[Rfam]
Rfam assigns this 175-nucleotide RNA from Bacillus yapensis to the family "Group II catalytic intron D1-D4-3". Rfam describes the family as follows. Group II introns are found in rRNA, tRNA and mRNA of organelles in fungi, plants and protists, and also in mRNA in bacteria. Lineage of the source: Bacteria > Bacillati > Bacillota > Bacillaceae > Bacillus. The pairing is the family consensus, mapped onto this sequence.
RNA sequence: UUUGCGAUGACGCAAAAAUCUGAAGGAAGUGAGCGACAAACCUCCGUUCUAAGGAACACGAACUUUAUAUAAGGCUAGGUCACAUUGGAUAAGUUUGCAACACAAAACAAAGUCCUUUCUGCCGAAGGUGAUACAGAGUAAAUGAAGCAGAUAGAUGGAGGGAAAUAUUGUACUC
Numbered sequence: 001u002u003u004g005c006g007a008u009g010a011c012g013c014a015a016a017a018a019u020c021u022g023a024a025g026g027a028a029g030u031g032a033g034c035g036a037c038a039a040a041c042c043u044c045c046g047u048u049c050u051a052a053g054g055a056a057c058a059c060g061a062a063c064u065u066u067a068u069a070u071a072a073g074g075c076u077a078g079g080u081c082a083c084a085u086u087g088g089a090u091a092a093g094u095u096u097g098c099a100a101c102a103c104a105a106a107a108c109a110a111a112g113u114c115c116u117u118u119c120u121g122c123c124g125a126a127g128g129u130g131a132u133a134c135a136g137a138g139u140a141a142a143u144g145a146a147g148c149a150g151a152u153a154g155a156u157g158g159a160g161g162g163a164a165a166u167a168u169u170g171u172a173c174u175c
Base pairs, nucleotide, nucleotide: 001016002015003014004013005012006011033174036171037170041161042160043159044158045157046156048151049150050149063147064146065145066144067143068142074139075138076137079134080133083130084129087115088114089113090112093108094107095106096105